RNA: Purine riboswitch aptamer
Organism: Treponema brennaborense
RNA sequence: UAUAGUAUUUUAUCGACGGCUCAUAUAAUUUCAUGAUGACGGUUUGACUUCUCCUUUCUUGAGAACCUCCUCAGUCAAUCCGGGGUAUGAAAGUUUCUACCGGCCACCCGAAACGGCUGACUAUGGGUUCCGUUUUUCUUUGG
Numbered sequence: 001u002a003u004a005g006u007a008u009u010u011u012a013u014c015g016a017c018g019g020c021u022c023a024u025a026u027a028a029u030u031u032c033a034u035g036a037u038g039a040c041g042g043u044u045u046g047a048c049u050u051c052u053c054c055u056u057u058c059u060u061g062a063g064a065a066c067c068u069c070c071u072c073a074g075u076c077a078a079u080c081c082g083g084g085g086u087a088u089g090a091a092a093g094u095u096u097c098u099a100c101c102g103g104c105c106a107c108c109c110g111a112a113a114c115g116g117c118u119g120a121c122u123a124u125g126g127g128u129u130c131c132g133u134u135u136u137u138c139u140u141u142g143g
Stems, first nucleotide, its partner, number of pairs: 018129008029092007101119005
Dot-bracket structure: .................((((((((...(((((((..................................................)))))))........(((((.........)))))..))))))))..............